[Rfam]
RNA sequence: CAUAAAAAACUGCCGAAUUUCCGCAUGGAAAACGGGGGAACCACUUUGGGUGAAUUGAUCUCGCGUCUUCUGCUUACAGGAGCGCCGGAGAGAUCAUAGGGAGCCUUCUACCGAACCCCACAGCUAACCUCGUAGGCAUUGGAAGGGGCUUUA
Numbered sequence: 001c002a003u004a005a006a007a008a009a010c011u012g013c014c015g016a017a018u019u020u021c022c023g024c025a026u027g028g029a030a031a032a033c034g035g036g037g038g039a040a041c042c043a044c045u046u047u048g049g050g051u052g053a054a055u056u057g058a059u060c061u062c063g064c065g066u067c068u069u070c071u072g073c074u075u076a077c078a079g080g081a082g083c084g085c086c087g088g089a090g091a092g093a094u095c096a097u098a099g100g101g102a103g104c105c106u107u108c109u110a111c112c113g114a115a116c117c118c119c120a121c122a123g124c125u126a127a128c129c130u131c132g133u134a135g136g137c138a139u140u141g142g143a144a145g146g147g148g149c150u151u152u153a
Stems, first nucleotide, its partner, number of pairs: 011138004018031003032133006048118003056096007099112002102109001
A member of the RNA family "c-di-AMP riboswitch aptamer (ydaO/yuaA leader)" from Paenibacillus sambharensis, 153 nucleotides long. Its family is annotated with cyclic-di-AMP binding and regulation of gene expression in the Gene Ontology. About the family: This family represents a conserved RNA structure found upstream of the ydaO and yuaA genes in Bacillus subtilis and related genes in other bacteria. The ydaO/yuaA element is thought to act as a genetic 'off' switch for the ydaO and yuaA genes in its native state. It is believed that the element may be triggered during osmotic shock leading to activation of ydaO, a predicted amino acid transporter gene, and members of the yuaA-yubG operon which code for KtrA and KtrB K+ transporters. Lineage of the source: Bacteria > Bacilli > Caryophanales > Paenibacillaceae > Paenibacillus. The match comes from Rfam's covariance-model search (74 bits).